mir-181 microRNA precursor family: an 81-nucleotide sequence from Danio rerio.

RNA sequence: CGGCUGCAAUAUACAUUCAUUGAUGUCGUUGGGUUUCACAUGUGAGCGACUCACUGACCAAUGAGUGCAAACUGCAGUAGG
Numbered sequence: 001c002g003g004c005u006g007c008a009a010u011a012u013a014c015a016u017u018c019a020u021u022g023a024u025g026u027c028g029u030u031g032g033g034u035u036u037c038a039c040a041u042g043u044g045a046g047c048g049a050c051u052c053a054c055u056g057a058c059c060a061a062u063g064a065g066u067g068c069a070a071a072c073u074g075c076a077g078u079a080g081g
Base pairs, nucleotide, nucleotide: 001081004077005076006075007074008073014067015066016065017064018063019062020061021060022059025058026057027056028055030053031052033050034049035048

It scores 50 bits against the family's covariance model. A reference for the family is Lagos-Quintana et al. (2003), "New microRNAs from mouse and human", RNA.